[Rfam]
Source information
tRNA: an 84-nucleotide sequence from Paramecium octaurelia. A search with the family's covariance model found it, with a score of 56 bits. The organism belongs to Paramecium, within Eukaryota. By type it is a transfer RNA. Transfer RNA (tRNA) molecules are approximately 80 nucleotides in length.

RNA sequence: GCCUGUUUGCCCGAGCUGGUUAAGGGGGCAGACUUAAGAUCUGCUGGAGCUCACUCCGCGUCGGUUCGAAUCCGACAGCAGGCA
Dot-bracket structure: (((((((..(((...........))).(((((.......)))))...............(((((.......)))))))))))).